[Rfam]
RNA sequence: CCAAAAUUAGUCGCUUGUCAUUUUCUAAUUGGUUCUUAGAGUGUUAAAAUUGUAUAAGAACCAAAUACAAAAUAACAAGGGCUAAUUUUGG
Numbered sequence: 001c002c003a004a005a006a007u008u009a010g011u012c013g014c015u016u017g018u019c020a021u022u023u024u025c026u027a028a029u030u031g032g033u034u035c036u037u038a039g040a041g042u043g044u045u046a047a048a049a050u051u052g053u054a055u056a057a058g059a060a061c062c063a064a065a066u067a068c069a070a071a072a073u074a075a076c077a078a079g080g081g082c083u084a085a086u087u088u089u090g091g
Stems, first nucleotide, its partner, number of pairs: 002090011014079005020073005026067002029064010